[Rfam]
RNA: U1 spliceosomal RNA
Organism: Cuscuta campestris
RNA sequence: AUACUUACCUGGACAGGUUCAAUGUGUUAUCAAGAAGACCCAUGGCCUAGGCUGAUAACUUUCAUUGCACUUUGGAUGGGUGUCCGCUUAAGGUCUACCCAAGUGGUGGAGCCUAUGUCAUAAUUUGUGGUAGUGAGGGUCAGGGUUCGCGCGGCUCCUAC
Numbered sequence: 001a002u003a004c005u006u007a008c009c010u011g012g013a014c015a016g017g018u019u020c021a022a023u024g025u026g027u028u029a030u031c032a033a034g035a036a037g038a039c040c041c042a043u044g045g046c047c048u049a050g051g052c053u054g055a056u057a058a059c060u061u062u063c064a065u066u067g068c069a070c071u072u073u074g075g076a077u078g079g080g081u082g083u084c085c086g087c088u089u090a091a092g093g094u095c096u097a098c099c100c101a102a103g104u105g106g107u108g109g110a111g112c113c114u115a116u117g118u119c120a121u122a123a124u125u126u127g128u129g130g131u132a133g134u135g136a137g138g139g140u141c142a143g144g145g146u147u148c149g150c151g152c153g154g155c156u157c158c159u160a161c
Base pairs, nucleotide, nucleotide: 012119013118014117015116016048017047019045020044021043023042024041026039027038049089050088051087053086055083056082057081059079060078062075063074091114092113093112094110095109096108098106099105136159137158138157139156143152145150